RNA sequence: GCGACUCUGGAAAGCGGGCCGUUCAGCCAGGCGGCCACACCGAAGGGGAAAGCGGGGCACCUCAUCAGGGCCCGGUGAAGCUCUCAGGUCCGAUGACAGAGGGGGAGAC
Numbered sequence: 001g002c003g004a005c006u007c008u009g010g011a012a013a014g015c016g017g018g019c020c021g022u023u024c025a026g027c028c029a030g031g032c033g034g035c036c037a038c039a040c041c042g043a044a045g046g047g048g049a050a051a052g053c054g055g056g057g058c059a060c061c062u063c064a065u066c067a068g069g070g071c072c073c074g075g076u077g078a079a080g081c082u083c084u085c086a087g088g089u090c091c092g093a094u095g096a097c098a099g100a101g102g103g104g105g106a107g108a109c
Base pairs, nucleotide, nucleotide: 002104005101006100007099008098009097017036018035019034020033021032039089040088041087042085043084046083047082048081052076053075
The record is a 109-nucleotide RNA sequence from Acrocarpospora corrugata, which matches "Glycine riboswitch aptamer" in Rfam.
The source organism's lineage runs through Bacteria, Actinomycetota, Actinomycetes, Streptosporangiales and Acrocarpospora.
A search with the family's covariance model found it, with a score of 44 bits.